The family of this 85-nucleotide RNA sequence from Enterobacterales bacterium CwR94 is "CyaR/Rye RNA". Pairs were carried over by alignment from the consensus structure, which was predicted with PFOLD. Rfam classes the family as a small RNA. A search with the family's covariance model found it, with a score of 54 bits. From the family's description: This sRNA was originally identified in a large scale screen of E. coli.
RNA sequence: GUGCUCAUAACCAGCAUCAAGAAACGGCAGGUUGUACCAAGAACCACCUCAUUGGCCCAUACGGCUCCCCCGUGUGGGCUUUUCU
Numbered sequence: 001g002u003g004c005u006c007a008u009a010a011c012c013a014g015c016a017u018c019a020a021g022a023a024a025c026g027g028c029a030g031g032u033u034g035u036a037c038c039a040a041g042a043a044c045c046a047c048c049u050c051a052u053u054g055g056c057c058c059a060u061a062c063g064g065c066u067c068c069c070c071c072g073u074g075u076g077g078g079c080u081u082u083u084c085u
Stems, first nucleotide, its partner, number of pairs: 039052001041050002054080011

For this family Rfam cites "Systematic deletion of Salmonella small RNA genes identifies CyaR, a conserved CRP-dependent riboregulator of OmpX synthesis" (Papenfort et al., Mol Microbiol, 2008). The organism belongs to Enterobacterales, within Bacteria.